[Rfam]
RNA sequence: UAACCAUCCCGAGCGACCGAGAGAUCUGGCUCCUAGACGUCGCAGCAACCACCUAUGAAUCACAUGUUCCAUAGGCCGGUGCUACCGCCAGUACCGAUGGAGA
Numbered sequence: 001u002a003a004c005c006a007u008c009c010c011g012a013g014c015g016a017c018c019g020a021g022a023g024a025u026c027u028g029g030c031u032c033c034u035a036g037a038c039g040u041c042g043c044a045g046c047a048a049c050c051a052c053c054u055a056u057g058a059a060u061c062a063c064a065u066g067u068u069c070c071a072u073a074g075g076c077c078g079g080u081g082c083u084a085c086c087g088c089c090a091g092u093a094c095c096g097a098u099g100g101a102g103a
Stems, first nucleotide, its partner, number of pairs: 001103001004100005013043005021032003026091004044083004049079002052075006087095001
Shown here is a 103-nucleotide RNA sequence from Arthrobacter sp. NIO-1057, a member of the family "SAM riboswitch aptamer (S box leader)". Clan: SAM clan. Gene Ontology term of the family: regulation of gene expression. A search with the family's covariance model found it, with a score of 50 bits. Taxonomically the source falls in Arthrobacter (Bacteria, Actinomycetes, Micrococcales, Micrococcaceae).